[Rfam]
The family of this 289-nucleotide RNA from Drepanopeziza brunnea is "A. fumigatus sRNA Afu_309". The organism belongs to Drepanopeziza brunnea f. sp. 'multigermtubi', within Eukaryota. The literature on the family includes a 2008 paper in Nucleic Acids Res by Jochl et al., "Small ncRNA transcriptome analysis from Aspergillus fumigatus suggests a novel mechanism for regulation of protein synthesis". Rfam classes the family as a small RNA. The match comes from Rfam's covariance-model search (143 bits).
RNA sequence: UUCUUUUCCACAACCACAGAUCUGUGUCCAGCGGCCCCUUCAGUCUUCGGGCUGUAAGGUCGACUGCUGCGGCAGUUCGUUCGUUCCAAGGAGCCACCUGCCUUCACCGGUUUCUAUGGUGUCAAUUUCCGAUCGACAGGUCUCAGAGUGAUUGGGCCACCACGAAACCUGAAUUCGCUGUCACAGGUUUGAGUUCGGUGGACGGUGGUGCUGAGGACGUCACAUUCCAAUUCCUUUCGCCGAGCCCGUUGGGCUGUGAGGUUUAGGACUAACCGUUUCGACUACAUAC
Number, nucleotide and partner (000 for none) at each position: 001u000002u000003c000004u000005u000006u000007u000008c000009c000010a000011c000012a000013a000014c000015c000016a000017c000018a143019g142020a141021u140022c139023u138024g137025u136026g073027u072028c071029c069030a068031g067032c000033g065034g064035c000036c062037c059038c058039u057040u056041c054042a053043g052044u051045c050046u000047u000048c000049g000050g045051g044052c043053u042054g041055u000056a040057a039058g038059g037060u000061c000062g036063a000064c034065u033066g000067c031068u030069g029070c000071g028072g027073c026074a000075g000076u000077u000078c000079g000080u000081u000082c135083g134084u000085u132086c131087c000088a000089a000090g123091g122092a000093g120094c119095c118096a000097c000098c000099u000100g000101c000102c000103u000104u000105c000106a000107c000108c000109g000110g000111u000112u000113u000114c000115u000116a000117u000118g095119g094120u093121g000122u091123c090124a000125a000126u000127u000128u000129c000130c000131g086132a085133u000134c083135g082136a025137c024138a023139g022140g021141u020142c019143u018144c000145a000146g000147a000148g000149u000150g000151a000152u000153u000154g211155g000156g209157c208158c207159a206160c000161c000162a000163c000164g000165a000166a199167a000168c198169c197170u000171g196172a195173a194174u193175u192176c191177g188178c187179u000180g000181u000182c000183a000184c000185a000186g000187g178188u177189u000190u000191g176192a175193g174194u173195u172196c171197g169198g168199u166200g000201g000202a000203c000204g000205g000206u159207g158208g157209u156210g000211c154212u000213g000214a000215g000216g282217a000218c280219g279220u000221c000222a276223c275224a000225u000226u000227c000228c000229a000230a000231u000232u268233c267234c266235u265236u000237u000238c000239g262240c261241c260242g000243a000244g254245c253246c252247c251248g000249u000250u000251g247252g246253g245254c244255u000256g000257u000258g000259a000260g241261g240262u239263u000264u000265a235266g234267g233268a232269c000270u000271a000272a000273c000274c000275g223276u222277u000278u000279c219280g218281a000282c216283u000284a000285c000286a000287u000288a000289c000